A member of the RNA family "mir-399 microRNA precursor family" from Gossypium mustelinum, 146 nucleotides long.
From the family's description: mir-399 was identified in both Arabidopsis thaliana and Oryza sativa computationally and was later experimentally verified. mir-399 is thought to target mRNAs coding for a phosphatase transporter. The mature sequence is excised from the 3' arm of the hairpin.
Rfam 15.1 lists 2,396 matches to the family in 221 species.
RNA sequence: AACUGCAUUACAGGGCAAUUUCUCCAUUGGCAGAAUGUCACUUUAAAGCUCAUUCUUUUUUUUUUUUUUUGGUGAAAUUUAAAGCUCAUUCUUUGAUGUAGUGUAGUGUGCACUCUGCCAAAGGAGAUUUGUCCGGCUAUUCUUUU
Numbered sequence: 001a002a003c004u005g006c007a008u009u010a011c012a013g014g015g016c017a018a019u020u021u022c023u024c025c026a027u028u029g030g031c032a033g034a035a036u037g038u039c040a041c042u043u044u045a046a047a048g049c050u051c052a053u054u055c056u057u058u059u060u061u062u063u064u065u066u067u068u069u070u071g072g073u074g075a076a077a078u079u080u081a082a083a084g085c086u087c088a089u090u091c092u093u094u095g096a097u098g099u100a101g102u103g104u105a106g107u108g109u110g111c112a113c114u115c116u117g118c119c120a121a122a123g124g125a126g127a128u129u130u131g132u133c134c135g136g137c138u139a140u141u142c143u144u145u146u
Base pairs, nucleotide, nucleotide: 005142007140008139011136013134014133015132016131017130018129022126023125024124025123028120029119030118031117032116033115034114036112037111038110